[Rfam]
RNA sequence: GUUCCCUUUUUUUUGUUGCCACUAUGAUCUCCCAUUGAUAUGAGCAGUUAUAUGCAUGGGAUAAAAUAAUAUUAGGCCAUUGUAAAUUGAUAUGAAGUAACCAUUUUCAUCUCUUCUGCAUGAAGGAGACACUG
Numbered sequence: 001g002u003u004c005c006c007u008u009u010u011u012u013u014u015g016u017u018g019c020c021a022c023u024a025u026g027a028u029c030u031c032c033c034a035u036u037g038a039u040a041u042g043a044g045c046a047g048u049u050a051u052a053u054g055c056a057u058g059g060g061a062u063a064a065a066a067u068a069a070u071a072u073u074a075g076g077c078c079a080u081u082g083u084a085a086a087u088u089g090a091u092a093u094g095a096a097g098u099a100a101c102c103a104u105u106u107u108c109a110u111c112u113c114u115u116c117u118g119c120a121u122g123a124a125g126g127a128g129a130c131a132c133u134g
Stems, first nucleotide, its partner, number of pairs: 003061004008056001015048005025040002028038002072128002078122002081120004089113002092110002094107005
Shown here is a 134-nucleotide sequence from Carlito syrichta, a member of the family "Small nucleolar RNA SNORA20". NCBI's taxonomy places the organism under Eukaryota, Chordata, Gnathostomata, Theria, Carlito. ACA20 is a member of the H/ACA class of snoRNA that guide the sites of modification of uridines to pseudouridines. Its family is annotated with nucleolus and RNA processing in the Gene Ontology. A search with the family's covariance model found it, with a score of 82 bits.